Annotation:
The family of this 143-nucleotide sequence from Otolemur garnettii is "Small nucleolar RNA SNORA72". Pairs were carried over by alignment from the consensus structure, which was predicted with PFOLD. It scores 128 bits against the family's covariance model. U72 is a member of the H/ACA class of snoRNAs. The snoRNA gene is located in intron 4 of the ribosomal L30 protein gene in human, mouse and chicken. It is annotated as an H/ACA-box small nucleolar RNA.
Nucleotides: 143
Stems, first nucleotide, its partner, number of pairs: 003057003016044001018042002021039006067136004072132002093120010
Number, partner (000 for none) and nucleotide at each position: 001000c002000u003057g004056c005055g006000a007000a008000u009000a010000u011000u012000c013000u014000c015000g016044c017000c018042g019041u020000u021039c022038u023037g024036a025035u026034u027000u028000u029000g030000u031000a032000a033000u034026a035025a036024u037023c038022a039021g040000c041019a042018c043000a044016g045000g046000c047000u048000a049000a050000a051000c052000a053000u054000u055005c056004g057003c058000u059000a060000u061000a062000u063000a064000a065000a066000a067136a068135c069134c070133a071000u072132g073131c074000a075000u076000g077000u078000g079000g080000u081000u082000u083000c084000u085000a086000u087000a088000u089000a090000g091000u092000u093120c094119u095118a096117g097116a098115c099114c100113u101112a102111g103000u104000u105000c106000u107000u108000u109000u110000c111102c112101u113100a114099g115098g116097u117096u118095u119094g120093g121000u122000u123000u124000u125000a126000u127000a128000a129000a130000u131073g132072c133070u134069g135068g136067u137000g138000a139000u140000a141000a142000a143000u